[Rfam]
Description: This 96-nucleotide RNA sequence from Oceanobacillus indicireducens belongs to the Rfam family "Guanidine-I riboswitch aptamer".
RNA sequence: UUGAAUGUUUUCUAGGGUUCCGCAACUUUGUUGGUCUGAGACCGAGAGAAAACUCGCAGCUUUGCUGUGCCACGGAAGGAUAAAAGCCUGGGAGAU
Numbered sequence: 001u002u003g004a005a006u007g008u009u010u011u012c013u014a015g016g017g018u019u020c021c022g023c024a025a026c027u028u029u030g031u032u033g034g035u036c037u038g039a040g041a042c043c044g045a046g047a048g049a050a051a052a053c054u055c056g057c058a059g060c061u062u063u064g065c066u067g068u069g070c071c072a073c074g075g076a077a078g079g080a081u082a083a084a085a086g087c088c089u090g091g092g093a094g095a096u
Base pairs, nucleotide, nucleotide: 007053008052009051010050011049012048015043016042020040021038022036023033024032025031026030055069056068057067058066059065071091073094077089078088079087

Lineage of the source: Bacteria > Bacillati > Bacillota > Bacilli > Oceanobacillus. The pairing is the family consensus, mapped onto this sequence. From the family's description: This family represents a conserved RNA structure found upstream of the ykkC and yxkD genes in Bacillus subtilis and related genes in other bacteria. The function of this family is unclear although it has been suggested that it may function to switch on efflux pumps and detoxification systems in response to harmful environmental molecules.